RNA sequence: AAAGUUGGCGAGGGGGUUGCGAGUUCGUCCUUGAGGCGCAUUCGAGGAAAGUCCGGGCUCCCCAAAGAUCAAACUUGCUGGGUAACGCCCAGUGCGUGCGAGCGUGAGGAUAGUGCCACAGAAAAAUACCGCAUUUUUGGGGGGUUUCCCUCAAAAGUGUAAGGGUGCAAAGGUGCGGUAAGAGCGCACCAGCAGCAUCGUGAGGUGCUGGCUCGGUAAACCCCGGUUGGGAGCAAGGUCGCAGGGACUAAGGUUGAUCUUUUCCCCGUCCCGUUUUUGGAGAACCGCUUGAGACGUUUGGUAACAACCGUCCUAGAUAGAUAACUCCCCCCAAUGAGUUAAUACUCAAUGGGAACAGAACCCGGCUUAUGUCUAACUUUCUCC
Numbered sequence: 001a002a003a004g005u006u007g008g009c010g011a012g013g014g015g016g017u018u019g020c021g022a023g024u025u026c027g028u029c030c031u032u033g034a035g036g037c038g039c040a041u042u043c044g045a046g047g048a049a050a051g052u053c054c055g056g057g058c059u060c061c062c063c064a065a066a067g068a069u070c071a072a073a074c075u076u077g078c079u080g081g082g083u084a085a086c087g088c089c090c091a092g093u094g095c096g097u098g099c100g101a102g103c104g105u106g107a108g109g110a111u112a113g114u115g116c117c118a119c120a121g122a123a124a125a126a127u128a129c130c131g132c133a134u135u136u137u138u139g140g141g142g143g144g145u146u147u148c149c150c151u152c153a154a155a156a157g158u159g160u161a162a163g164g165g166u167g168c169a170a171a172g173g174u175g176c177g178g179u180a181a182g183a184g185c186g187c188a189c190c191a192g193c194a195g196c197a198u199c200g201u202g203a204g205g206u207g208c209u210g211g212c213u214c215g216g217u218a219a220a221c222c223c224c225g226g227u228u229g230g231g232a233g234c235a236a237g238g239u240c241g242c243a244g245g246g247a248c249u250a251a252g253g254u255u256g257a258u259c260u261u262u263u264c265c266c267c268g269u270c271c272c273g274u275u276u277u278u279g280g281a282g283a284a285c286c287g288c289u290u291g292a293g294a295c296g297u298u299u300g301g302u303a304a305c306a307a308c309c310g311u312c313c314u315a316g317a318u319a320g321a322u323a324a325c326u327c328c329c330c331c332c333a334a335u336g337a338g339u340u341a342a343u344a345c346u347c348a349a350u351g352g353g354a355a356c357a358g359a360a361c362c363c364g365g366c367u368u369a370u371g372u373c374u375a376a377c378u379u380u381c382u383c384c
Base pairs, nucleotide, nucleotide: 001380002379003378004377005376006375007374008373011370012329013328014327015326016325017324018323020044021043022042023041024040026038027037028036049368050367051366053365054364055363056362057361058233059232060231061230067265072228073227074226076225077224078092079091080090081089082088093107094105095104096103097102108223109222113221114220115217116216117215129164130163131160132159133158134157135156136155137154138153139152140151141150142149143148172190173189174188175187176186177185192212193210194209195208196207197206198205199204237286238285239284247277250274252272256270257269258268293312294311295310296309298307299306300305